[Rfam]
This 225-nucleotide RNA from Miscanthus lutarioriparius belongs to the Rfam family "MIR6217 microRNA precursor family". The organism belongs to Miscanthus, within Eukaryota. Rfam links the family to the GO terms miRNA-mediated post-transcriptional gene silencing and RISC complex.
RNA sequence: UAUAUAUAGAAUAACUUAUUCUAUAUACUUUGAGUUACUAUAGUUACUAUUCUAAUUUACAAUAUUACAGUAACUCCUUACUAAUUGAUUUACUAUAACAUUAUGGUAAAUAUCACCGUGAGUUGUAGUAACACAAGUAUCGUAAAUGCAUAUUCAUGUUAUCGUAAAUUGGUACAAACAUUAUCAUCAAUCAAGGUGGCUAUAGAAUAAGUUAUUCUAUGGCCA
Numbered sequence: 001u002a003u004a005u006a007u008a009g010a011a012u013a014a015c016u017u018a019u020u021c022u023a024u025a026u027a028c029u030u031u032g033a034g035u036u037a038c039u040a041u042a043g044u045u046a047c048u049a050u051u052c053u054a055a056u057u058u059a060c061a062a063u064a065u066u067a068c069a070g071u072a073a074c075u076c077c078u079u080a081c082u083a084a085u086u087g088a089u090u091u092a093c094u095a096u097a098a099c100a101u102u103a104u105g106g107u108a109a110a111u112a113u114c115a116c117c118g119u120g121a122g123u124u125g126u127a128g129u130a131a132c133a134c135a136a137g138u139a140u141c142g143u144a145a146a147u148g149c150a151u152a153u154u155c156a157u158g159u160u161a162u163c164g165u166a167a168a169u170u171g172g173u174a175c176a177a178a179c180a181u182u183a184u185c186a187u188c189a190a191u192c193a194a195g196g197u198g199g200c201u202a203u204a205g206a207a208u209a210a211g212u213u214a215u216u217c218u219a220u221g222g223c224c225a
Stems, first nucleotide, its partner, number of pairs: 001225001005221021026198006035189001037187001040184005048176001050174001052172009064162002067159003070155001072153001078145004086139002089136002091130009101120001106114001